[Rfam]
ZMP/ZTP riboswitch aptamer (pfl RNA motif): an 84-nucleotide sequence from Micromonospora craniellae.

RNA sequence: UGUCGGUGACGCGACUGGCGGCACCGGGGAUGGGAUCGACCAUCGGGAAGCUCGUCGUGGGGGUCGUCCGCCUGGGCCUCCGCG
Numbered sequence: 001u002g003u004c005g006g007u008g009a010c011g012c013g014a015c016u017g018g019c020g021g022c023a024c025c026g027g028g029g030a031u032g033g034g035a036u037c038g039a040c041c042a043u044c045g046g047g048a049a050g051c052u053c054g055u056c057g058u059g060g061g062g063g064u065c066g067u068c069c070g071c072c073u074g075g076g077c078c079u080c081c082g083c084g
Stems, first nucleotide, its partner, number of pairs: 004057006011051002015047002017072005030043004061079005
Lineage of the source: Bacteria > Actinomycetota > Actinomycetes > Micromonosporales > Micromonospora. A search with the family's covariance model found it, with a score of 45 bits. The family's consensus secondary structure is taken from published work.